[Rfam]
RNA: Small nucleolar RNA SNORD46
Organism: Cottoperca gobio
Nucleotides: 109
Base pairs, nucleotide, nucleotide: 001109002108003107004106005105006104
Number, partner (000 for none) and nucleotide at each position: 001109a002108g003107c004106a005105u006104g007000g008000g009000u010000g011000a012000u013000g014000a015000a016000a017000a018000a019000g020000u021000g022000a023000c024000c025000u026000u027000a028000g029000g030000u031000u032000u033000g034000u035000c036000a037000a038000u039000u040000u041000u042000g043000a044000g045000c046000c047000g048000u049000u050000u051000u052000g053000g054000a055000u056000c057000a058000a059000a060000g061000u062000u063000u064000u065000u066000g067000a068000c069000u070000u071000a072000c073000c074000a075000a076000u077000g078000c079000c080000a081000g082000g083000a084000c085000u086000u087000u088000g089000u090000c091000a092000u093000a094000g095000u096000u097000a098000c099000u100000c101000u102000g103000a104006c105005a106004u107003g108002c109001u